This 45-nucleotide RNA sequence from Solanum commersonii belongs to the Rfam family "MIR7991 microRNA precursor family". Gene Ontology terms of the family: miRNA-mediated post-transcriptional gene silencing and RISC complex. It scores 61 bits against the family's covariance model. Rfam 15.1 lists 299 matches to the family in 2 species.

RNA sequence: AAGAGGUCGGAAUUUUUAAUAAUCUAAUAAAAACCGACCUCUUGA
Numbered sequence: 001a002a003g004a005g006g007u008c009g010g011a012a013u014u015u016u017u018a019a020u021a022a023u024c025u026a027a028u029a030a031a032a033a034c035c036g037a038c039c040u041c042u043u044g045a
Stems, first nucleotide, its partner, number of pairs: 001043010013033006020026002
Dot-bracket structure: ((((((((((..((((((.((...)).))))))))))))))))..